[Rfam]
RNA sequence: AUUUGAGUGAUGAUGACUAUUGUGUUUUGGACUAGAGUUUCUGAUGCUCCACUUUGUGGUAGUAUUUGAAGACCAAACCCUUGGCUGUCUGAACUCAAAU
Numbered sequence: 001a002u003u004u005g006a007g008u009g010a011u012g013a014u015g016a017c018u019a020u021u022g023u024g025u026u027u028u029g030g031a032c033u034a035g036a037g038u039u040u041c042u043g044a045u046g047c048u049c050c051a052c053u054u055u056g057u058g059g060u061a062g063u064a065u066u067u068g069a070a071g072a073c074c075a076a077a078c079c080c081u082u083g084g085c086u087g088u089c090u091g092a093a094c095u096c097a098a099a100u
Stems, first nucleotide, its partner, number of pairs: 001100008038071004045064004050059001
Source information: A member of the RNA family "Small nucleolar RNA Z157/R69/R10" from Panicum virgatum, 100 nucleotides long. The family's RNA type in Rfam is C/D-box small nucleolar RNA. The literature on the family includes a 2003 paper in Nucleic Acids Res by Chen et al., "The high diversity of snoRNAs in plants: identification and comparative study of 120 snoRNA genes from Oryza sativa". Its family is annotated with RNA processing and nucleolus in the Gene Ontology. The organism belongs to Panicum sect. Hiantes, within Eukaryota.